[Rfam]
RNA: Purine riboswitch aptamer
Organism: Lentibacillus kapialis
RNA sequence: CAACAAUUCAAUAGCUUGUUUCAUAUAAUAGCAGGAAUAAGGCCUGCAAGUUUCUACCGGUUUACCGUAAAAUGAACCGACUAUGAAAGAAGGCGUGACAAAA
Numbered sequence: 001c002a003a004c005a006a007u008u009c010a011a012u013a014g015c016u017u018g019u020u021u022c023a024u025a026u027a028a029u030a031g032c033a034g035g036a037a038u039a040a041g042g043c044c045u046g047c048a049a050g051u052u053u054c055u056a057c058c059g060g061u062u063u064a065c066c067g068u069a070a071a072a073u074g075a076a077c078c079g080a081c082u083a084u085g086a087a088a089g090a091a092g093g094c095g096u097g098a099c100a101a102a103a
Stems, first nucleotide, its partner, number of pairs: 019088007029049001031047005058079007